[Rfam]
RNA sequence: AUUGGUGGGUAAUUGCGUACGGCUUAUGCCGUAUGAGGAAAGUCCAUGCUCGCACUGACUGCGAUGUCAGUAGUGUUCGUGCUAGCUGAAAAAAUAAGGCUAGGCAGCUUUUUAAAGUUGACGGCCAACGAAUGACCUAAGGGCUUGCCUAUGGUUUAAUAGUUGUUAAGGUGCCACAGUGACGAAUCACACCAGAAAUGUUGUGAAUGGAACGCGGUAAACCCCACGAGCGGGCAACCCAAACUUUGGUAGGGGCGCUUGACCUAGCUAAUUGAAGCGAUGGUCGGGGAGAUAGCAAUAUCUGAGAUAGAUGAUUACCACCACAUAAAGAAUGCCAUCCUUUGUGUGGAACAAAACAUGGCUUACAGCC
Numbered sequence: 001a002u003u004g005g006u007g008g009g010u011a012a013u014u015g016c017g018u019a020c021g022g023c024u025u026a027u028g029c030c031g032u033a034u035g036a037g038g039a040a041a042g043u044c045c046a047u048g049c050u051c052g053c054a055c056u057g058a059c060u061g062c063g064a065u066g067u068c069a070g071u072a073g074u075g076u077u078c079g080u081g082c083u084a085g086c087u088g089a090a091a092a093a094a095u096a097a098g099g100c101u102a103g104g105c106a107g108c109u110u111u112u113u114a115a116a117g118u119u120g121a122c123g124g125c126c127a128a129c130g131a132a133u134g135a136c137c138u139a140a141g142g143g144c145u146u147g148c149c150u151a152u153g154g155u156u157u158a159a160u161a162g163u164u165g166u167u168a169a170g171g172u173g174c175c176a177c178a179g180u181g182a183c184g185a186a187u188c189a190c191a192c193c194a195g196a197a198a199u200g201u202u203g204u205g206a207a208u209g210g211a212a213c214g215c216g217g218u219a220a221a222c223c224c225c226a227c228g229a230g231c232g233g234g235c236a237a238c239c240c241a242a243a244c245u246u247u248g249g250u251a252g253g254g255g256c257g258c259u260u261g262a263c264c265u266a267g268c269u270a271a272u273u274g275a276a277g278c279g280a281u282g283g284u285c286g287g288g289g290a291g292a293u294a295g296c297a298a299u300a301u302c303u304g305a306g307a308u309a310g311a312u313g314a315u316u317a318c319c320a321c322c323a324c325a326u327a328a329a330g331a332a333u334g335c336c337a338u339c340c341u342u343u344g345u346g347u348g349g350a351a352c353a354a355a356a357c358a359u360g361g362c363u364u365a366c367a368g369c370c
Base pairs, nucleotide, nucleotide: 004370005369006368007366008319009318010317011316012315013314014313016035017034018033019032020031021030040364041363042362044361045360046359047358048357049234050233051232052231053230054071055070056069057068058067059066077229078228079227080226081225082103083102084101085100086099087098104122105120106119107118108117109116110115123224124223126165127164128163129162134156135155136154137153141150142149143148171222172221173218174217175216187206188205189204190203191202193200194199238254239253240252258288259287260286261285262284263283264282290303291302292301293300294299321349322348323347324346325345326344327343328342329341

Bacterial RNase P class B: a 370-nucleotide sequence from Weissella viridescens. Ribonuclease P (RNase P) is a ubiquitous endoribonuclease, found in archaea, bacteria and eukarya as well as chloroplasts and mitochondria. Rfam links the family to the GO terms dimeric ribonuclease P complex, ribonuclease P activity and tRNA processing. The organism belongs to Weissella, within Bacteria.